[Rfam]
RNA sequence: GUCGCUCUUUCUUUGGUCAACUAGCUUAUGAAUUUCAUAACAAUCAUACAGCUAAAUGACCAAAGAAAGAGCGUU
Dot-bracket structure: (.(((.(((((((((((((..((((((((((............))))).)))))..))))))))))))).))).)
Numbered sequence: 001g002u003c004g005c006u007c008u009u010u011c012u013u014u015g016g017u018c019a020a021c022u023a024g025c026u027u028a029u030g031a032a033u034u035u036c037a038u039a040a041c042a043a044u045c046a047u048a049c050a051g052c053u054a055a056a057u058g059a060c061c062a063a064a065g066a067a068a069g070a071g072c073g074u075u
Stems, first nucleotide, its partner, number of pairs: 001075001003073003007069013022054005027048005
Overview
mir-9/mir-79 microRNA precursor family: a 75-nucleotide RNA from Trichinella spiralis. Lineage of the source: Eukaryota > Bilateria > Protostomia > Enoplea > Trichinella. Rfam 15.1 lists 5,647 matches to the family in 934 species. Pairs were carried over by alignment from the consensus structure, which was predicted with RNAalifold.